[Rfam]
RNA: FMN riboswitch aptamer (RFN element)
RNA sequence: UAUAAUCUUCAGGGCGGGGUGUGAUUCCCCACCGGCGGUAUAGCCCGCGAGCCAUAAUUGGUAUGAUUCGGUGAGAUUCCGAGGCCGACAGUAGAGUCUGGAUGAAAGAAGGUAAAA
Numbered sequence: 001u002a003u004a005a006u007c008u009u010c011a012g013g014g015c016g017g018g019g020u021g022u023g024a025u026u027c028c029c030c031a032c033c034g035g036c037g038g039u040a041u042a043g044c045c046c047g048c049g050a051g052c053c054a055u056a057a058u059u060g061g062u063a064u065g066a067u068u069c070g071g072u073g074a075g076a077u078u079c080c081g082a083g084g085c086c087g088a089c090a091g092u093a094g095a096g097u098c099u100g101g102a103u104g105a106a107a108g109a110a111g112g113u114a115a116a117a
Base pairs, nucleotide, nucleotide: 003115005113006112007111008110009109010108017029018028019027031097032096033087034086035048036047037046038045043085044084053061067083068082069081070080071079089100090099091098